[Rfam]
RNA sequence: CCUUCUGAAGUAUCUUUAGGAUAGCUCCAGGCGAGCUUGCAUAUGCGGUAGAGCCACCGAUUAAGAGGAAUGGGGUCGAAAGGCCUCACCGCUUCGUCAAACUCCGAAUGCAUAUGCUGUGUAGACCCUGGGAGUCGGCGAUGCUGGGUAAGCUAGCACCGCGAGACUACAAAGAUAGUGACCGAGGUUAAGGUCCCCAAAUCCUAAUUAAGUGUAUCAAAGGCGAGGAAUAUCUUAGACAGCUGGGAGGUAGGCUCAGAAGCAGCCAUCCUUUAAAAAACGAGUAAUAGCGUACCAGUCAAGGUAUACCUUUCCUAAAAUAUACGGGGCUAAAUUAGGUACCGAGACCCCGGUGUGCGAAAGCACAGGUAAGAAGGCGUACGGUAUGAUGAGAAGUAUGUUUGGAAGGACAUAUGGAUCGUAUCGUAGAGAAUAU
Number, nucleotide and partner (000 for none) at each position: 001c377002c376003u375004u374005c373006u372007g000008a000009a000010g000011u023012a022013u021014c020015u019016u000017u000018a000019g015020g014021a013022u012023a011024g000025c134026u132027c131028c130029a129030g128031g127032c000033g000034a000035g120036c119037u000038u000039g117040c116041a115042u114043a113044u112045g111046c110047g000048g000049u000050a000051g105052a103053g102054c000055c000056a000057c000058c000059g098060a097061u096062u000063a094064a093065g092066a000067g090068g089069a000070a000071u000072g087073g086074g085075g084076u083077c082078g000079a000080a000081a000082g077083g076084c075085c074086u073087c072088a000089c068090c067091g000092c065093u064094u063095c000096g061097u060098c059099a000100a000101a000102c053103u052104c000105c051106g000107a000108a000109u000110g046111c045112a044113u043114a042115u041116g040117c039118u000119g036120u035121g000122u000123a000124g000125a000126c000127c031128c030129u029130g028131g027132g026133a000134g025135u000136c000137g000138g162139c161140g160141a000142u158143g157144c156145u155146g154147g000148g000149u000150a000151a000152g000153c000154u146155a145156g144157c143158a142159c000160c140161g139162c138163g000164a000165g000166a000167c178168u177169a176170c000171a000172a000173a000174g000175a000176u169177a168178g167179u000180g000181a000182c353183c352184g351185a000186g349187g348188u347189u000190a000191a000192g343193g342194u341195c000196c000197c000198c000199a000200a000201a340202u000203c339204c338205u337206a336207a335208u334209u000210a000211a000212g000213u000214g000215u000216a000217u000218c000219a000220a000221a000222g315223g314224c000225g312226a311227g310228g309229a000230a307231u306232a305233u304234c303235u000236u000237a000238g000239a000240c000241a000242g299243c298244u297245g296246g295247g000248a272249g271250g270251u000252a000253g267254g266255c265256u000257c000258a000259g000260a000261a000262g000263c000264a000265g255266c254267c253268a000269u000270c250271c249272u248273u277274u000275a000276a000277a273278a293279a000280a000281c000282g291283a000284g000285u000286a000287a000288u000289a000290g000291c282292g000293u278294a000295c246296c245297a244298g243299u242300c000301a000302a000303g234304g233305u232306a231307u230308a000309c228310c227311u226312u225313u000314c223315c222316u000317a000318a000319a000320a000321u000322a000323u000324a000325c000326g000327g000328g000329g000330c000331u000332a000333a000334a208335u207336u206337a205338g204339g203340u201341a194342c193343c192344g000345a000346g000347a188348c187349c186350c000351c184352g183353g182354u367355g366356u365357g364358c363359g000360a000361a000362a000363g358364c357365a356366c355367a354368g000369g000370u000371a000372a006373g005374a004375a003376g002377g001378c431379g000380u428381a427382c426383g425384g424385u423386a422387u421388g420389a419390u000391g000392a000393g000394a000395a000396g415397u414398a413399u412400g411401u410402u409403u408404g000405g000406a000407a000408g403409g402410a401411c400412a399413u398414a397415u396416g000417g000418a000419u389420c388421g387422u386423a385424u384425c383426g382427u381428a380429g000430a000431g378432a000433a000434u000435a000436u000

Shown here is a 436-nucleotide part of an RNA from Candidatus Mancarchaeum acidiphilum, a member of the family "Archaeal large subunit ribosomal RNA". It scores 2239 bits against the family's covariance model. NCBI's taxonomy places the organism under Archaea, Nanobdellati, Microcaldota, Candidatus Mancarchaeum. For this family Rfam cites "Crystal structure of the ribosome at 5.5 A resolution" (Yusupov et al., Science, 2001).